Rfam assigns this 249-nucleotide RNA to the family "T-box leader". Rfam describes the family as follows. Uncharged tRNA acts as the effector for transcription antitermination of genes in the T-box leader family. T-boxes are found upstream of many aminoacyl-tRNA synthetase genes and some amino acid biosynthetic genes usually in Gram-positive bacteria. The anticodon of a specific tRNA base pairs to a specifier sequence within the T-box motif, and the NCCA acceptor tail of the tRNA base pairs to a conserved bulge in the T-box antiterminator hairpin. For this family Rfam cites "tRNA determinants for transcription antitermination of the Bacillus subtilis tyrS gene" (Grundy et al., RNA, 2000). Rfam 15.1 lists 19,395 matches to the family in 1,923 species.
RNA sequence: AUUAACUCGUUGAACAAGAGGAGUACACUUAUUUAUUUCUUCUAAGAGAGUCGGGGGAGGUGGGAGCCCGAUAAGAAAGGAUUUGUGGAAUGGACUUGUGAGAGGCAUCUUGAAUCUAAGUAGGGAUGCACGGGUCUCCACCGUUAAAAGGAUAGGAUAUCGAACAGUUUGUUCCGUAUCUGAAGAGGAAGCAGAGCAAUCGGCUGCUUCAAACAGAGGUGGCACCACGACCAUAGAAUCGUCCUCUAU
Numbered sequence: 001a002u003u004a005a006c007u008c009g010u011u012g013a014a015c016a017a018g019a020g021g022a023g024u025a026c027a028c029u030u031a032u033u034u035a036u037u038u039c040u041u042c043u044a045a046g047a048g049a050g051u052c053g054g055g056g057g058a059g060g061u062g063g064g065a066g067c068c069c070g071a072u073a074a075g076a077a078a079g080g081a082u083u084u085g086u087g088g089a090a091u092g093g094a095c096u097u098g099u100g101a102g103a104g105g106c107a108u109c110u111u112g113a114a115u116c117u118a119a120g121u122a123g124g125g126a127u128g129c130a131c132g133g134g135u136c137u138c139c140a141c142c143g144u145u146a147a148a149a150g151g152a153u154a155g156g157a158u159a160u161c162g163a164a165c166a167g168u169u170u171g172u173u174c175c176g177u178a179u180c181u182g183a184a185g186a187g188g189a190a191g192c193a194g195a196g197c198a199a200u201c202g203g204c205u206g207c208u209u210c211a212a213a214c215a216g217a218g219g220u221g222g223c224a225c226c227a228c229g230a231c232c233a234u235a236g237a238a239u240c241g242u243c244c245u246c247u248a249u
Stems, first nucleotide, its partner, number of pairs: 007103002015098004026087003031082001039075003050072006105129007131143003188210007216246004227242004